The family of this 141-nucleotide sequence from Bucco capensis is "Small Cajal body specific RNA 11". The family's RNA type in Rfam is small Cajal body RNA. Taxonomically the source falls in Bucco (Eukaryota, Vertebrata, Tetrapoda, Aves). A reference for the family is Darzacq et al. (2002), "Cajal body-specific small nuclear RNAs: a novel class of 2'-O-methylation and pseudouridylation guide RNAs", EMBO J. From the family's description: scaRNAs are a specific class of small nuclear RNAs which localise to the Cajal bodies and guide the modification of RNA polymerase II transcribed spliceosomal RNAs U1, U2, U4, U5 and U12. ACA57 belongs to the H/ACA box class of guide RNAs as it has the predicted hairpin-hinge-hairpin-tail structure, conserved H/ACA-box motifs and is found associated with GAR1. ACA57 is predicted to guide the pseudouridylation of the U5 spliceosomal RNA at position U43.
[Rfam]
RNA sequence: GUGUCCUGACCUCAUCUCAUCUCUUCCCCUCACCGGAGCUGUGGUGGUGGGGUCUGGGGGUGGACACAGAUCAACUUACCUCUCCUGUUAGGAGGGCUACCAAAGACCAUGUGUAAGCCCUUAAAGGCAAGAGAGGACACU
Numbered sequence: 001g002u003g004u005c006c007u008g009a010c011c012u013c014a015u016c017u018c019a020u021c022u023c024u025u026c027c028c029c030u031c032a033c034c035g036g037a038g039c040u041g042u043g044g045u046g047g048u049g050g051g052g053u054c055u056g057g058g059g060g061u062g063g064a065c066a067c068a069g070a071u072c073a074a075c076u077u078a079c080c081u082c083u084c085c086u087g088u089u090a091g092g093a094g095g096g097c098u099a100c101c102a103a104a105g106a107c108c109a110u111g112u113g114u115a116a117g118c119c120c121u122u123a124a125a126g127g128c129a130a131g132a133g134a135g136g137a138c139a140c141u
Base pairs, nucleotide, nucleotide: 002066003065004064005063006062010059011058026052027051028049030047031046032045033044079136080135081134082133083132084131088126089125092122093121094120095119096118097117098116099114100113103110